Eukaryotic large subunit ribosomal RNA: a 278-nucleotide part of an RNA from Neocallimastix californiae. Lineage of the source: Eukaryota > Neocallimastigomycota > Neocallimastigomycetes > Neocallimastigales > Neocallimastix.
[Rfam]
RNA sequence: GAGUCUAACAAAUAUGCGAGUAUUUGAGUGGUAAACUCAUAUGCGUAAUGAAAGUGAUUUUGGUGGGAUUUUCGAUGCACCAUCAACCGGUCAGGAUUUUUUAUGAGCGAUCUGAGUCUAAGCAUAUUUGUUGGGACCCGAAAGAUGGUGAACUAUGCCUGAAUAGGGUGAAGUCAGAGGAAACUCUGAUGGAGGCUCGUAGCGGUUCUGACGUGCAAAUCGAUCGUCAAAUUUGGGUAUAGGGGCGAAAGACUAAUCGAACCAUCUAGUAGCUGGUU
Numbered sequence: 001g002a003g004u005c006u007a008a009c010a011a012a013u014a015u016g017c018g019a020g021u022a023u024u025u026g027a028g029u030g031g032u033a034a035a036c037u038c039a040u041a042u043g044c045g046u047a048a049u050g051a052a053a054g055u056g057a058u059u060u061u062g063g064u065g066g067g068a069u070u071u072u073c074g075a076u077g078c079a080c081c082a083u084c085a086a087c088c089g090g091u092c093a094g095g096a097u098u099u100u101u102u103a104u105g106a107g108c109g110a111u112c113u114g115a116g117u118c119u120a121a122g123c124a125u126a127u128u129u130g131u132u133g134g135g136a137c138c139c140g141a142a143a144g145a146u147g148g149u150g151a152a153c154u155a156u157g158c159c160u161g162a163a164u165a166g167g168g169u170g171a172a173g174u175c176a177g178a179g180g181a182a183a184c185u186c187u188g189a190u191g192g193a194g195g196c197u198c199g200u201a202g203c204g205g206u207u208c209u210g211a212c213g214u215g216c217a218a219a220u221c222g223a224u225c226g227u228c229a230a231a232u233u234u235g236g237g238u239a240u241a242g243g244g245g246c247g248a249a250a251g252a253c254u255a256a257u258c259g260a261a262c263c264a265u266c267u268a269g270u271a272g273c274u275g276g277u278u
Stems, first nucleotide, its partner, number of pairs: 005134013020044003025039005048055002062084005070075001086117002088114003091110002098103001137276002140273001144266006153242011164230001166198004173190007202227004207223002210221002244254002